[Rfam]
RNA: Exoribonuclease-resistant RNA (xrRNA) plant-infecting virus (class 3)
RNA sequence: AUCCGAAGCAGGGCAAUAGGUUGCAAGCGCCUGAUAGGAAGUCCUAUGA
Numbered sequence: 001a002u003c004c005g006a007a008g009c010a011g012g013g014c015a016a017u018a019g020g021u022u023g024c025a026a027g028c029g030c031c032u033g034a035u036a037g038g039a040a041g042u043c044c045u046a047u048g049a
Base pairs, nucleotide, nucleotide: 002038003037009033010032012031013028014027016047017046018045019044020043